[Rfam]
RNA: Small nucleolar RNA SNORA79
RNA sequence: UGAUAGCGUUCCCCGUGCUGUUGAAGUAAUGACUGCAUGGUUUUAGACUAUCAUAGAUUAAAAGUGAAGCACUUCACCCAUGGCUUAAGGCACCUAGCUAGACAGCAAUGGUUUUGCUGGAUACAGCCAUGGCUUUGCGACUUCAAACAUAU
Numbered sequence: 001u002g003a004u005a006g007c008g009u010u011c012c013c014c015g016u017g018c019u020g021u022u023g024a025a026g027u028a029a030u031g032a033c034u035g036c037a038u039g040g041u042u043u044u045a046g047a048c049u050a051u052c053a054u055a056g057a058u059u060a061a062a063a064g065u066g067a068a069g070c071a072c073u074u075c076a077c078c079c080a081u082g083g084c085u086u087a088a089g090g091c092a093c094c095u096a097g098c099u100a101g102a103c104a105g106c107a108a109u110g111g112u113u114u115u116g117c118u119g120g121a122u123a124c125a126g127c128c129a130u131g132g133c134u135u136u137g138c139g140a141c142u143u144c145a146a147a148c149a150u151a152u
Stems, first nucleotide, its partner, number of pairs: 001053006007046001013040005020033003066144004078132008